M-box riboswitch aptamer (ykoK leader): a 170-nucleotide RNA from Enterococcus phoeniculicola. The organism belongs to Enterococcus phoeniculicola, within Bacteria. Rfam 15.1 lists 1,095 matches to the family in 932 species. M-box riboswitch, also know as ykoK leader is described as a metaloregulatory RNA that sense divalent metals and function as a genetic control element of genes related to divalent metal transport in bacteria. It was first reported upstream of the B.subtilis ykoK gene and genes with related functions in other bacteria. The pairing is the family consensus, mapped onto this sequence.
RNA sequence: AAGAAUAAUUGUUAGGUGAGGCUCCUAUACGGACAUAAGCUGCUGCCGCGAAAAAAUCGAGAGAUUUUUAGUUGGUUGAACAGGGAUAAUCGUGAAGGUUAUCCAUAAUGUAGCUGAUAGUAAAUACUAUCUACGCCCUAUAGUGCUAAAGCUCAACGAUGGACAUGAUU
Numbered sequence: 001a002a003g004a005a006u007a008a009u010u011g012u013u014a015g016g017u018g019a020g021g022c023u024c025c026u027a028u029a030c031g032g033a034c035a036u037a038a039g040c041u042g043c044u045g046c047c048g049c050g051a052a053a054a055a056a057u058c059g060a061g062a063g064a065u066u067u068u069u070a071g072u073u074g075g076u077u078g079a080a081c082a083g084g085g086a087u088a089a090u091c092g093u094g095a096a097g098g099u100u101a102u103c104c105a106u107a108a109u110g111u112a113g114c115u116g117a118u119a120g121u122a123a124a125u126a127c128u129a130u131c132u133a134c135g136c137c138c139u140a141u142a143g144u145g146c147u148a149a150a151g152c153u154c155a156a157c158g159a160u161g162g163a164c165a166u167g168a169u170u
Stems, first nucleotide, its partner, number of pairs: 005166002009162002011157002013096001015153003020147003025143005031137002039114005045076004055066004084104003089099003116131003